[Rfam]
RNA sequence: AAAAAAAUGAUGAUGGAGACGGGAGACCAAACGGUUUUUUUAAGAGAGAGAAUUCAACAGCUGAAAGAAUUCUUAUGAAACCAGGUUGAAAUUCACUCCGGAGUGCGAAUUGGAAAACAAGUACAUUUCGCCGGCACAGCCGUUAUAUUUCAAGUGGAUACGCAUUUUGUAUCAACAUGGGUGGCACCGCGGUUUAUAUCGUCCCUUGC
Number, nucleotide and partner (000 for none) at each position: 001a000002a000003a000004a000005a000006a000007a104008u103009g000010a000011u000012g000013a000014u000015g099016g098017a097018g096019a000020c000021g000022g000023g000024a000025g087026a086027c085028c084029a000030a000031a000032c000033g000034g000035u000036u000037u000038u000039u075040u000041u000042a000043a000044g000045a000046g000047a000048g000049a000050g072051a071052a070053u069054u068055c067056a000057a000058c000059a000060g000061c000062u000063g000064a000065a000066a000067g055068a054069a053070u052071u051072c050073u000074u000075a039076u000077g000078a000079a000080a000081c000082c000083a000084g028085g027086u026087u025088g000089a000090a000091a000092u000093u000094c000095a000096c018097u017098c016099c015100g000101g000102a000103g008104u007105g000106c130107g129108a128109a127110u000111u125112g124113g000114a000115a000116a000117a000118c000119a000120a000121g000122u000123a000124c112125a111126u000127u109128u108129c107130g106131c000132c142133g141134g140135c000136a000137c000138a000139g000140c134141c133142g132143u000144u000145a000146u000147a000148u000149u000150u000151c000152a000153a000154g000155u000156g000157g173158a172159u171160a170161c169162g168163c000164a000165u000166u000167u000168u162169g161170u160171a159172u158173c157174a000175a000176c000177a000178u000179g205180g204181g203182u000183g000184g000185c000186a000187c000188c000189g202190c201191g200192g199193u198194u000195u000196a000197u000198a193199u192200c191201g190202u189203c181204c180205c179206u000207u000208g000209c000
The family of this 209-nucleotide RNA sequence from Alkalibacter rhizosphaerae is "T-box leader". From the family's description: Uncharged tRNA acts as the effector for transcription antitermination of genes in the T-box leader family. T-boxes are found upstream of many aminoacyl-tRNA synthetase genes and some amino acid biosynthetic genes usually in Gram-positive bacteria. The match comes from Rfam's covariance-model search (108 bits). By type it is a cis-regulatory leader.